[Rfam]
RNA: SAM riboswitch aptamer (S box leader)
RNA sequence: ACCUCAUCACGAGGAGCCGAGGGAUCUGGCCCGAUGACGCUCCAGCAACCGUCUCACUGAGAAAGGUGCUUCUUCCAGCAGCAAUCGCGCUGAUAGAUGAGUG
Numbered sequence: 001a002c003c004u005c006a007u008c009a010c011g012a013g014g015a016g017c018c019g020a021g022g023g024a025u026c027u028g029g030c031c032c033g034a035u036g037a038c039g040c041u042c043c044a045g046c047a048a049c050c051g052u053c054u055c056a057c058u059g060a061g062a063a064a065g066g067u068g069c070u071u072c073u074u075c076c077a078g079c080a081g082c083a084a085u086c087g088c089g090c091u092g093a094u095a096g097a098u099g100a101g102u103g
Base pairs, nucleotide, nucleotide: 003101004100005099006098007097008096013043014042015041016040017039021032022031023030026078027077028076029075044070045069046068047067049066050065052062053061054060055059074095079092080091081090082089